RNA sequence: UCGUGAAAUCAGUUCUUCCUUCAUAUAAUUUCGAUAAUAUGGGUCGAAAGUUUCUACCGAAUCACCUUAAAUGAUUGGACUAUGAAGGCAGGUUCUUUGUUG
Numbered sequence: 001u002c003g004u005g006a007a008a009u010c011a012g013u014u015c016u017u018c019c020u021u022c023a024u025a026u027a028a029u030u031u032c033g034a035u036a037a038u039a040u041g042g043g044u045c046g047a048a049a050g051u052u053u054c055u056a057c058c059g060a061a062u063c064a065c066c067u068u069a070a071a072u073g074a075u076u077g078g079a080c081u082a083u084g085a086a087g088g089c090a091g092g093u094u095c096u097u098u099g100u101u102g
Base pairs, nucleotide, nucleotide: 018088019087020086021085022084023083024082025081029049030048031047032046033045034044035043058078060076061075062074063073064072